[Rfam]
RNA sequence: AAAAAGGGCUUCUGUCGUGCGUGACACGGGGGGGCUGUGUGCUACCCCUGCGGAAUCGACAUCAAGAGAUUUCGGAAGCACAAUUUUUGCACAACGGGGUUGCUGGUAACCGCCUGUUCUGGCACCCCA
Numbered sequence: 001a002a003a004a005a006g007g008g009c010u011u012c013u014g015u016c017g018u019g020c021g022u023g024a025c026a027c028g029g030g031g032g033g034g035c036u037g038u039g040u041g042c043u044a045c046c047c048c049u050g051c052g053g054a055a056u057c058g059a060c061a062u063c064a065a066g067a068g069a070u071u072u073c074g075g076a077a078g079c080a081c082a083a084u085u086u087u088u089g090c091a092c093a094a095c096g097g098g099g100u101u102g103c104u105g106g107u108a109a110c111c112g113c114c115u116g117u118u119c120u121g122g123c124a125c126c127c128c129a
Base pairs, nucleotide, nucleotide: 008079009078010077011076012075013026014025015024016023017022027050028049029048030047031046032045034042035041051074052073053072054071055070056069057068097127098126099125100124102123103122104121105120106119108118109117110116
RNA: U11 spliceosomal RNA